The family of this 55-nucleotide sequence from Synaphobranchus kaupii is "UnaL2 LINE 3' element". Pairs were carried over by alignment from the consensus structure, which is taken from published work. NCBI's taxonomy places the organism under Eukaryota, Chordata, Actinopteri, Elopocephalai, Synaphobranchus.

RNA sequence: UGCAUGCACUUAUUGUAUGUCGCUUUGGAUAGAAGCGUCUGCUAAAUGACUAAUG
Numbered sequence: 001u002g003c004a005u006g007c008a009c010u011u012a013u014u015g016u017a018u019g020u021c022g023c024u025u026u027g028g029a030u031a032g033a034a035g036c037g038u039c040u041g042c043u044a045a046a047u048g049a050c051u052a053a054u055g
Stems, first nucleotide, its partner, number of pairs: 014044001015042003021037006